[Rfam]
The record is a 162-nucleotide RNA from Trichechus manatus, which matches "FGF-1 internal ribosome entry site (IRES)" in Rfam. This family represents the FGF-1 internal ribosome entry site (IRES). The FGF-1 IRES is present in the 5' UTR of the mRNA and allows cap-independent translation. For this family Rfam cites "Internal Ribosome Entry Site Structural Motifs Conserved among Mammalian Fibroblast Growth Factor 1 Alternatively Spliced mRNAs" (Martineau et al., Mol Cell Biol, 2004). The source organism's lineage runs through Eukaryota, Teleostomi, Dipnotetrapodomorpha, Mammalia and Trichechus manatus. The family has 6 seed sequences and 127 matches in Rfam 15.1.
RNA sequence: GGGUGGGGGGAUAAGGGCAUCGCCUCCUUUUCUUAAAGGAAACUCCCUCUGCUGGUGAAUGGAACUCCCUUCCUCCUGCCUGGGCCUGUCUGCAGCAGCCCUGGUAGGACAGCGUGGACAUUACCGCAGUGGCUGCUGCCCCAGAAAGAAAGCACCCAGAGC
Number, nucleotide and partner (000 for none) at each position: 001g000002g162003g000004u160005g000006g000007g157008g156009g155010g000011a000012u149013a000014a048015g047016g046017g045018c000019a000020u000021c000022g000023c039024c038025u037026c000027c000028u000029u000030u000031u000032c000033u000034u000035a000036a000037a025038g024039g023040a000041a000042a000043c000044u000045c017046c016047c015048u014049c144050u143051g000052c000053u000054g000055g075056u000057g072058a071059a070060u000061g069062g068063a000064a000065c000066u000067c000068c062069c061070u059071u058072c057073c000074u000075c055076c000077u000078g000079c000080c138081u000082g000083g134084g133085c132086c000087u000088g000089u000090c129091u128092g127093c126094a000095g124096c000097a000098g000099c000100c000101c116102u000103g000104g000105u000106a000107g000108g000109a000110c000111a000112g000113c000114g000115u000116g101117g000118a000119c000120a000121u000122u000123a000124c095125c000126g093127c092128a091129g090130u000131g000132g085133c084134u083135g000136c000137u000138g080139c000140c000141c000142c000143a050144g049145a000146a000147a000148g000149a012150a000151a000152g000153c000154a000155c009156c008157c007158a000159g000160a004161g000162c002

A search with the family's covariance model found it, with a score of 66 bits.